The family of this 60-nucleotide RNA from Pyrobaculum aerophilum is "Pyrobac-1 RNA". The base pairs follow the family's consensus structure, which is taken from published work. The motif has been shown by to be part of sRNA202 and sRNA203 canonical and noncanonical pseudouridine guide RNA (H/ACA RNA). The source organism's lineage runs through Archaea, Thermoproteati, Thermoproteaceae, Pyrobaculum and Pyrobaculum aerophilum. It is annotated as a small RNA. For this family Rfam cites "Discovery of Pyrobaculum small RNA families with atypical pseudouridine guide RNA features" (Bernick et al., RNA, 2012). Rfam's curators put it in the seed alignment.
[Rfam]
RNA sequence: ACAACCGCGACGGGCUGUGGAGAGCCGCGCCCGCGGCGCCGUGAAACAGCCUGACGGUGU
Numbered sequence: 001a002c003a004a005c006c007g008c009g010a011c012g013g014g015c016u017g018u019g020g021a022g023a024g025c026c027g028c029g030c031c032c033g034c035g036g037c038g039c040c041g042u043g044a045a046a047c048a049g050c051c052u053g054a055c056g057g058u059g060u
Base pairs, nucleotide, nucleotide: 011053012052013051014050015049016048017047018046024037025036026035027034028033